This 134-nucleotide RNA from Urocolius indicus belongs to the Rfam family "Small nucleolar RNA SNORA84". NCBI's taxonomy places the organism under Eukaryota, Bilateria, Deuterostomia, Sauropsida, Urocolius. Gene Ontology terms of the family: nucleolus and RNA processing. The match comes from Rfam's covariance-model search (108 bits). The family has 28 seed sequences and 757 matches in Rfam 15.1.

RNA sequence: GCCCUGUGGUUACUGGACACUGGUUUGUGCAUCCAGUGCUUCAGUUGGUUGGAAUGGGCCGAAAGCAAUGCUGUGAUUUAUGCGUGGAGCUGUGACGUGUGAGCAGCCUCCACAGCCCGGUCACAGUUACAGAC
Numbered sequence: 001g002c003c004c005u006g007u008g009g010u011u012a013c014u015g016g017a018c019a020c021u022g023g024u025u026u027g028u029g030c031a032u033c034c035a036g037u038g039c040u041u042c043a044g045u046u047g048g049u050u051g052g053a054a055u056g057g058g059c060c061g062a063a064a065g066c067a068a069u070g071c072u073g074u075g076a077u078u079u080a081u082g083c084g085u086g087g088a089g090c091u092g093u094g095a096c097g098u099g100u101g102a103g104c105a106g107c108c109u110c111c112a113c114a115g116c117c118c119g120g121u122c123a124c125a126g127u128u129a130c131a132g133a134c
Stems, first nucleotide, its partner, number of pairs: 001059004008049001010047001012045006019037005071126001073124006082116002084113004089107005